[Rfam]
RNA sequence: UACCAUAAACUCCGCAGCCAAGCUAUGGAGCAUGGUUAACAAAUCCAUCCAAGGUAAAGAUCUCCACGUCUAGGAGUUACCUUGGAUGGUCAUGCGGGAAACCGCAUGGGUGGCCGAAAGGCUGUC
Numbered sequence: 001u002a003c004c005a006u007a008a009a010c011u012c013c014g015c016a017g018c019c020a021a022g023c024u025a026u027g028g029a030g031c032a033u034g035g036u037u038a039a040c041a042a043a044u045c046c047a048u049c050c051a052a053g054g055u056a057a058a059g060a061u062c063u064c065c066a067c068g069u070c071u072a073g074g075a076g077u078u079a080c081c082u083u084g085g086a087u088g089g090u091c092a093u094g095c096g097g098g099a100a101a102c103c104g105c106a107u108g109g110g111u112g113g114c115c116g117a118a119a120g121g122c123u124g125u126c
Stems, first nucleotide, its partner, number of pairs: 002036003010030005016024003045089011060078001062076004091108007109126006
RNA: LOOT RNA